[Rfam]
RNA sequence: UGGCGCCCAACGUGGGGCUCGAGCACGGGGGAUCCAGUGAAGGACGUCGUUCGAGUGGAUGGCAGAAAGGAAAAGAAAAGAGGGAACGACAUGGGAACCUGCUGCGUCUGCACCCCUCGGGUAAGUGAACGGCGAUAAUGGUCAAGCAUUGAGCCAAGAUAAGAUGUUCGUUGAAGGACUAGGAAAGGCUAUAAAGGCAUGAGGAGUAAAGGUGAAAAAUCAAGCAUUUGUGUCAGUAUUUUGAUUAUAUUAAAGAAGUUUUUCCUU
Number, nucleotide and partner (000 for none) at each position: 001u000002g000003g000004c000005g000006c031007c030008c029009a000010a000011c000012g026013u025014g024015g000016g000017g000018c000019u000020c000021g000022a000023g000024c014025a013026c012027g000028g000029g008030g007031g006032a000033u000034c000035c000036a047037g045038u044039g000040a000041a000042g000043g000044a038045c037046g000047u036048c000049g000050u000051u000052c000053g000054a000055g000056u000057g000058g000059a000060u000061g000062g000063c000064a000065g000066a000067a000068a000069g000070g000071a000072a000073a000074a000075g000076a000077a000078a000079a000080g000081a000082g117083g115084g114085a000086a000087c110088g000089a000090c106091a000092u104093g103094g102095g000096a000097a000098c000099c000100u000101g000102c094103u093104g092105c000106g090107u000108c000109u000110g087111c000112a000113c000114c084115c083116c000117u082118c000119g000120g000121g000122u000123a000124a000125g000126u144127g143128a142129a000130c141131g000132g139133c000134g000135a000136u000137a000138a000139u132140g000141g130142u128143c127144a126145a000146g000147c000148a000149u000150u193151g192152a000153g189154c188155c187156a000157a000158g000159a000160u000161a000162a000163g000164a000165u000166g000167u000168u000169c000170g000171u000172u000173g000174a000175a000176g000177g000178a000179c000180u000181a000182g000183g000184a000185a000186a000187g155188g154189c153190u000191a000192u151193a150194a000195a000196g000197g000198c000199a000200u243201g242202a241203g240204g239205a000206g237207u236208a000209a000210a229211g228212g227213u226214g225215a000216a000217a000218a000219a000220u000221c000222a000223a000224g000225c214226a213227u212228u211229u210230g000231u000232g000233u000234c000235a000236g207237u206238a000239u204240u203241u202242u201243g200244a000245u000246u000247a000248u000249a000250u000251u000252a267253a266254a000255g264256a263257a262258g000259u000260u000261u000262u257263u256264c255265c000266u253267u252

Record summary: Mason-Pfizer monkey virus packaging signal: a 267-nucleotide RNA from Molossus molossus. The literature on the family includes a 2004 paper in Virus Res by Mustafa et al., "Mutational analysis of the predicted secondary RNA structure of the Mason-Pfizer monkey virus packaging signal". A search with the family's covariance model found it, with a score of 118 bits. Rfam classes the family as a cis-regulatory element. The base pairs follow the family's consensus structure, which was predicted with PFOLD.